RNA sequence: CCGCCGCUUCUGCGGCGUUCAUGCCCGCCUGACUACGGGGCCAUGAGGCGGGGGUGGUGCCGUGUCGGCGCAGCACCACCCCCGCGAC
Numbered sequence: 001c002c003g004c005c006g007c008u009u010c011u012g013c014g015g016c017g018u019u020c021a022u023g024c025c026c027g028c029c030u031g032a033c034u035a036c037g038g039g040g041c042c043a044u045g046a047g048g049c050g051g052g053g054g055u056g057g058u059g060c061c062g063u064g065u066c067g068g069c070g071c072a073g074c075a076c077c078a079c080c081c082c083c084g085c086g087a088c
Base pairs, nucleotide, nucleotide: 002017003016004015005014006013007012019046020045021044022043023042025039026038048085049084050083051082052081053080054079055078056077057076058075059074060073062071063070064069
This 88-nucleotide RNA sequence from Streptomyces indicus belongs to the Rfam family "Streptomyces RNA 6106". About the family: Identified by deep sequencing of transcriptome at the end of exponential growth phase. Appears smaller on northern blot than sequencing transcript. This indicates processing step. Streptomyces specific. The base pairs follow the family's consensus structure. The family's RNA type in Rfam is small RNA. A search with the family's covariance model found it, with a score of 66 bits.